[Rfam]
RNA: UnaL2 LINE 3' element
RNA sequence: GGGUUAAUCAACUGUACGUCGCUCUGGAUAAGAGUGUCUGCCAAAUGCCAAUAA
Numbered sequence: 001g002g003g004u005u006a007a008u009c010a011a012c013u014g015u016a017c018g019u020c021g022c023u024c025u026g027g028a029u030a031a032g033a034g035u036g037u038c039u040g041c042c043a044a045a046u047g048c049c050a051a052u053a054a
Stems, first nucleotide, its partner, number of pairs: 013043001014041003020036006